[Rfam]
RNA sequence: AUGGUCUGGGGAAAGGCUCCUGUGUGGUUGAACCUGCCCAGUUGUGGGUACAGCCUUGUACUGGCAGCCCAACCCUGACCUAAAGUAAAUUCCCAGGAGAAGUCUUUCCUGGGAUUUGAAUUUGCAGCAACAGAUGUGAACAUUCUAGUGGCAGUUUGAUCAUGUAUGAUACUAUAAAUAGGA
Numbered sequence: 001a002u003g004g005u006c007u008g009g010g011g012a013a014a015g016g017c018u019c020c021u022g023u024g025u026g027g028u029u030g031a032a033c034c035u036g037c038c039c040a041g042u043u044g045u046g047g048g049u050a051c052a053g054c055c056u057u058g059u060a061c062u063g064g065c066a067g068c069c070c071a072a073c074c075c076u077g078a079c080c081u082a083a084a085g086u087a088a089a090u091u092c093c094c095a096g097g098a099g100a101a102g103u104c105u106u107u108c109c110u111g112g113g114a115u116u117u118g119a120a121u122u123u124g125c126a127g128c129a130a131c132a133g134a135u136g137u138g139a140a141c142a143u144u145c146u147a148g149u150g151g152c153a154g155u156u157u158g159a160u161c162a163u164g165u166a167u168g169a170u171a172c173u174a175u176a177a178a179u180a181g182g183a
Base pairs, nucleotide, nucleotide: 003080004079005078006077008075009074010073015069016068017067018066019064020063022061025060026055027054028053029052030051032049033048034047092113093112094111096108097107098106099105121178122177123176124175126173127172129170131168132167137162138161139160141158147156148155149154

About this RNA: Rfam assigns this 183-nucleotide RNA from Macaca mulatta to the family "Small Cajal body specific RNA 16". For this family Rfam cites "Cajal body-specific small nuclear RNAs: a novel class of 2'-O-methylation and pseudouridylation guide RNAs" (Darzacq et al., EMBO J, 2002). The family has 37 seed sequences and 790 matches in Rfam 15.1. The sequence is in the family's curated seed alignment. scaRNAs are a specific class of small nuclear RNAs which localise to the Cajal bodies and guide the modification of RNA polymerase II transcribed spliceosomal RNAs U1, U2, U4, U5 and U12. ACA47 belongs to the H/ACA box class of guide RNAs as it has the predicted hairpin-hinge-hairpin-tail structure, the conserved H/ACA-box motifs and is found associated with GAR1. ACA47 is predicted to guide the pseudouridylation of residue U5 of the U1 spliceosomal snRNA.